[Rfam]
Potassium channel RNA editing signal: a 114-nucleotide RNA from Echeneis naucrates. Rfam classes the family as a cis-regulatory element. The source organism's lineage runs through Eukaryota, Vertebrata, Neoteleostei, Eurypterygia and Echeneis.
RNA sequence: GUGGGUUAUGGGGAUAUGCACCCCGUGACAAUCGGAGGGAAGAUUGUGGGGUCCUUGUGCGCAAUCGCUGGUGUGCUGACAAUUGCCCUGCCUGUACCUGUCAUCGUCUCCAAU
Numbered sequence: 001g002u003g004g005g006u007u008a009u010g011g012g013g014a015u016a017u018g019c020a021c022c023c024c025g026u027g028a029c030a031a032u033c034g035g036a037g038g039g040a041a042g043a044u045u046g047u048g049g050g051g052u053c054c055u056u057g058u059g060c061g062c063a064a065u066c067g068c069u070g071g072u073g074u075g076c077u078g079a080c081a082a083u084u085g086c087c088c089u090g091c092c093u094g095u096a097c098c099u100g101u102c103a104u105c106g107u108c109u110c111c112a113a114u
Stems, first nucleotide, its partner, number of pairs: 001114002004111002008107004013102004018097001020095002037077002040074001050062001